[Rfam]
RNA sequence: ACAUUUCAUCAAGAGAAAGUCGCCAGACUUCACCAACCUGCAUUAUUAUUUUGUAAGGUGGUUUUACUCAAAUAAUGAGUAAGAUGUGCUCUUGCAUUAUUGCAUGAGAACUUUAAGGCACUUU
Numbered sequence: 001a002c003a004u005u006u007c008a009u010c011a012a013g014a015g016a017a018a019g020u021c022g023c024c025a026g027a028c029u030u031c032a033c034c035a036a037c038c039u040g041c042a043u044u045a046u047u048a049u050u051u052u053g054u055a056a057g058g059u060g061g062u063u064u065u066a067c068u069c070a071a072a073u074a075a076u077g078a079g080u081a082a083g084a085u086g087u088g089c090u091c092u093u094g095c096a097u098u099a100u101u102g103c104a105u106g107a108g109a110a111c112u113u114u115a116a117g118g119c120a121c122u123u124u
Base pairs, nucleotide, nucleotide: 007086008085009084010083015031017030018029019028020027021026032062033061034060037058038057039056040054041053042052044120046118047117089108090107091106
This 124-nucleotide RNA from Paraglaciecola sp. MB-3u-78 belongs to the Rfam family "SAM-I/IV (S-adenosyl methionine) riboswitch aptamer". The literature on the family includes a 2008 paper in RNA by Weinberg et al., "The aptamer core of SAM-IV riboswitches mimics the ligand-binding site of SAM-I riboswitches".